[Rfam]
RNA sequence: CGGUUUGGAACGGUCGCUGCCCGCAGCGGGUCGGGCGUUUUAACCGUCUCCGGUUCUCCCGGUGCGCACUUGAGGGCUCGCAGGUGUUUCCUCCCUCGCCUGCAUGCUGCGUACCCGCCUCGCCCCGCUCCCCGCUACCAGGUGAGCGGGGCUUUUU
Numbered sequence: 001c002g003g004u005u006u007g008g009a010a011c012g013g014u015c016g017c018u019g020c021c022c023g024c025a026g027c028g029g030g031u032c033g034g035g036c037g038u039u040u041u042a043a044c045c046g047u048c049u050c051c052g053g054u055u056c057u058c059c060c061g062g063u064g065c066g067c068a069c070u071u072g073a074g075g076g077c078u079c080g081c082a083g084g085u086g087u088u089u090c091c092u093c094c095c096u097c098g099c100c101u102g103c104a105u106g107c108u109g110c111g112u113a114c115c116c117g118c119c120u121c122g123c124c125c126c127g128c129u130c131c132c133c134g135c136u137a138c139c140a141g142g143u144g145a146g147c148g149g150g151g152c153u154u155u156u157u
Stems, first nucleotide, its partner, number of pairs: 061115008080103007122152009132142002